[Rfam]
Small nucleolar RNA snoR60: a 71-nucleotide RNA from Coptis chinensis. Gene Ontology terms of the family: nucleolus and RNA processing. The family has 10 seed sequences and 1,133 matches in Rfam 15.1. Its Rfam clan is "SNORD101 clan".
RNA sequence: AAGCAAGUGAUGAAAUUACUCGGAUUCCCCUUCAGACAUUCUGGAAGUUGAUAAAUCGAGUUUCUGAUGCU
Numbered sequence: 001a002a003g004c005a006a007g008u009g010a011u012g013a014a015a016u017u018a019c020u021c022g023g024a025u026u027c028c029c030c031u032u033c034a035g036a037c038a039u040u041c042u043g044g045a046a047g048u049u050g051a052u053a054a055a056u057c058g059a060g061u062u063u064c065u066g067a068u069g070c071u
Stems, first nucleotide, its partner, number of pairs: 002071004